Overview:
The record is an 80-nucleotide RNA sequence from Denticeps clupeoides, which matches "mir-219 microRNA precursor family" in Rfam. The family has 92 seed sequences and 1,318 matches in Rfam 15.1. For this family Rfam cites "Computational identification of Drosophila microRNA genes" (Lai et al., Genome Biol, 2003). The source organism's lineage runs through Eukaryota, Actinopteri, Teleostei, Denticipitoidei and Denticeps.
Nucleotides: 080
Stems, first nucleotide, its partner, number of pairs: 002079001004077002007074001009071004014067005021060011
Number, partner (000 for none) and nucleotide at each position: 001000u002079c003000c004077g005076g006000a007074g008000c009071u010070g011069a012068u013000u014067g015066u016065c017064c018063a019000a020000a021060c022059g023058c024057a025056a026055u027054u028053c029052u030051u031050g032000u033000g034000u035000g036000u037000g038000c039000c040000a041000g042000a043000g044000u045000g046000u047000a048000a049000g050031c051030a052029g053028g054027a055026g056025u057024u058023g059022u060021g061000g062000a063018u064017g065016g066015a067014c068012a069011u070010c071009a072000u073000g074007c075000c076005c077004c078000u079002g080000a